[Rfam]
Shown here is a 72-nucleotide RNA sequence from Trichonephila clavata, a member of the family "Vault RNA". A search with the family's covariance model found it, with a score of 41 bits. Lineage of the source: Eukaryota > Panarthropoda > Araneoidea > Nephilidae > Trichonephila. By type it is a non-coding RNA gene.
Nucleotides: 072
Base pairs, nucleotide, nucleotide: 002067003066004065005064006063007062012056013055014054015053017052018051019050020049026048027047028046029045
Number, partner (000 for none) and nucleotide at each position: 001000a002067c003066g004065c005064a006063g007062g008000c009000g010000u011000g012056g013055u014054u015053g016000a017052g018051u019050g020049g021000u022000u023000a024000c025000u026048u027047c028046g029045g030000a031000a032000a033000c034000a035000g036000u037000u038000a039000u040000u041000c042000u043000c044000a045029u046028c047027g048026a049020c050019c051018a052017c053015u054014g055013a056012c057000g058000c059000a060000g061000u062007c063006c064005u065004g066003u067002g068000u069000u070000u071000u072000u